[Rfam]
RNA sequence: AAAGCAGGUAUUGUGUGUAUCGGCUUUGUGCUUUCUGAUGCAUUUAUGCCGAAAGUGUUUCCUGCAACAUUUAACACGGGGUGAAUGGGCAGUCAGGCCUCUGUUUGUUAUUGUCAUCAGGGCAUUGACAAUCAUUUUCCCUAAAAUU
Numbered sequence: 001a002a003a004g005c006a007g008g009u010a011u012u013g014u015g016u017g018u019a020u021c022g023g024c025u026u027u028g029u030g031c032u033u034u035c036u037g038a039u040g041c042a043u044u045u046a047u048g049c050c051g052a053a054a055g056u057g058u059u060u061c062c063u064g065c066a067a068c069a070u071u072u073a074a075c076a077c078g079g080g081g082u083g084a085a086u087g088g089g090c091a092g093u094c095a096g097g098c099c100u101c102u103g104u105u106u107g108u109u110a111u112u113g114u115c116a117u118c119a120g121g122g123c124a125u126u127g128a129c130a131a132u133c134a135u136u137u138u139c140c141c142u143a144a145a146a147u148u
Stems, first nucleotide, its partner, number of pairs: 004065005010059001015043006078142004083137006092129004

Background: Shown here is a 148-nucleotide sequence from Amborella trichopoda, a member of the family "small nucleolar RNA snoR135". On this family, see Chen and Wu, Nucleic Acids Res 2009: "Mining small RNA sequencing data: a new approach to identify small nucleolar RNAs in Arabidopsis". Rfam classes the family as an H/ACA-box small nucleolar RNA. Its family is annotated with RNA processing and nucleolus in the Gene Ontology.